[Rfam]
RNA: THF (Tetrahydrofolate) riboswitch aptamer
Organism: Eubacterium sp. CAG:248
RNA sequence: AGCAGAGUAGGAAUAUGUGCGUUAAGUGCUGUAUGGACAGGGAGUUGCCAUAUGGACGAAAAGGUUUUCUUGCGAUACAUAAUCCGCAUCCCGCUGCU
Numbered sequence: 001a002g003c004a005g006a007g008u009a010g011g012a013a014u015a016u017g018u019g020c021g022u023u024a025a026g027u028g029c030u031g032u033a034u035g036g037a038c039a040g041g042g043a044g045u046u047g048c049c050a051u052a053u054g055g056a057c058g059a060a061a062a063g064g065u066u067u068u069c070u071u072g073c074g075a076u077a078c079a080u081a082a083u084c085c086g087c088a089u090c091c092c093g094c095u096g097c098u
Stems, first nucleotide, its partner, number of pairs: 001098005010085003014081006020074003026057002029055008040091003044087001061071004